[Rfam]
RNA sequence: UAGUAUCGGUGAAGAUGCCGGUUAAUCGCAACGGGACGGAAAGACCCCGUGAACCUUCACUACAACUUAACAUUGAUUUUGAAUGCCAGAUGUGUAGGAUAGUUGGGAGACUAUGAAGCAGCUUCGCCAGGAGUUGUGGAGUCAUCGUUGAAAUACCAACCUUCUGUUAUUUAGAGUCUAAUCCGGCAACGGAGACAUUGUUUGGUGGGUAGUUUGACUGGGGUGGUCGCCUCCUAAAAGGUAACGGAGGCUCGCAAAGGUACCCUCAGUACGGUUGGUAAUCGUACGCAGAGCGCAUUAGUAUAAGGGUGCUUGACUGUGAGGCAAACAAGCCGAGCAGGUGCGAAAGCAGGCUAAAGUGAUCCGGUGGUUCUGUAUGGAAGGGCCAUCGCUCAAAGGAUAAAAGGUACUCCGGGGAUAACAGGCUGAUCUCACCCAAGAGCUCAUAUCGACGGUGAGGUUUGGCACCUCGAUGUCGGUUCGUCACAUCCUGGGGCUGGAGAAGGUCCCAAGGGUUCGGCUGUUCGCCGAUUAAAGUGGCACGUGAACUGGGUUCAGAACGUCGCAAGACAGUUCGGUCCCUAUCUGUUGUGAUCGUU
Numbered sequence: 001u002a003g004u005a006u007c008g009g010u011g012a013a014g015a016u017g018c019c020g021g022u023u024a025a026u027c028g029c030a031a032c033g034g035g036a037c038g039g040a041a042a043g044a045c046c047c048c049g050u051g052a053a054c055c056u057u058c059a060c061u062a063c064a065a066c067u068u069a070a071c072a073u074u075g076a077u078u079u080u081g082a083a084u085g086c087c088a089g090a091u092g093u094g095u096a097g098g099a100u101a102g103u104u105g106g107g108a109g110a111c112u113a114u115g116a117a118g119c120a121g122c123u124u125c126g127c128c129a130g131g132a133g134u135u136g137u138g139g140a141g142u143c144a145u146c147g148u149u150g151a152a153a154u155a156c157c158a159a160c161c162u163u164c165u166g167u168u169a170u171u172u173a174g175a176g177u178c179u180a181a182u183c184c185g186g187c188a189a190c191g192g193a194g195a196c197a198u199u200g201u202u203u204g205g206u207g208g209g210u211a212g213u214u215u216g217a218c219u220g221g222g223g224u225g226g227u228c229g230c231c232u233c234c235u236a237a238a239a240g241g242u243a244a245c246g247g248a249g250g251c252u253c254g255c256a257a258a259g260g261u262a263c264c265c266u267c268a269g270u271a272c273g274g275u276u277g278g279u280a281a282u283c284g285u286a287c288g289c290a291g292a293g294c295g296c297a298u299u300a301g302u303a304u305a306a307g308g309g310u311g312c313u314u315g316a317c318u319g320u321g322a323g324g325c326a327a328a329c330a331a332g333c334c335g336a337g338c339a340g341g342u343g344c345g346a347a348a349g350c351a352g353g354c355u356a357a358a359g360u361g362a363u364c365c366g367g368u369g370g371u372u373c374u375g376u377a378u379g380g381a382a383g384g385g386c387c388a389u390c391g392c393u394c395a396a397a398g399g400a401u402a403a404a405a406g407g408u409a410c411u412c413c414g415g416g417g418a419u420a421a422c423a424g425g426c427u428g429a430u431c432u433c434a435c436c437c438a439a440g441a442g443c444u445c446a447u448a449u450c451g452a453c454g455g456u457g458a459g460g461u462u463u464g465g466c467a468c469c470u471c472g473a474u475g476u477c478g479g480u481u482c483g484u485c486a487c488a489u490c491c492u493g494g495g496g497c498u499g500g501a502g503a504a505g506g507u508c509c510c511a512a513g514g515g516u517u518c519g520g521c522u523g524u525u526c527g528c529c530g531a532u533u534a535a536a537g538u539g540g541c542a543c544g545u546g547a548a549c550u551g552g553g554u555u556c557a558g559a560a561c562g563u564c565g566c567a568a569g570a571c572a573g574u575u576c577g578g579u580c581c582c583u584a585u586c587u588g589u590u591g592u593g594a595u596c597g598u599u
Base pairs, nucleotide, nucleotide: 005022006021007020008019009018025595026594027593028592029591030590031589032588034587035586036585038582039581046416047415048414049413051412052411053408054407055406056405057404059213060212061211062210066205067204069202070201071200072199075178076177077176078175079174080173081172082171083170084169085168087166088165089164090163092161102160103159104158105157106156109143110142111141118137119136120135121134122133123132124131125130182193183192184191216228217227218226219225229251230250231249232248233247234246252397254354255353260312261311262310263309264308265307266292267291269287270286271285272284273283274282293302294301317340318339319338320337323334324333325332342351343350344349365391366390367389368388369387370386371385373384374383425466426465427464429463430460431459432458433457434456435455436454440450441449477552478550479549480548481547482544483541484540485539486538487537490515491514493510494509495508496507497506498505517531518530519529520528521527558576559575560574561573562571563570564569
The family of this 599-nucleotide part of an RNA from Chitinophaga flava is "Bacterial large subunit ribosomal RNA". The source organism's lineage runs through Bacteria, Bacteroidota, Chitinophagia, Chitinophagaceae and Chitinophaga.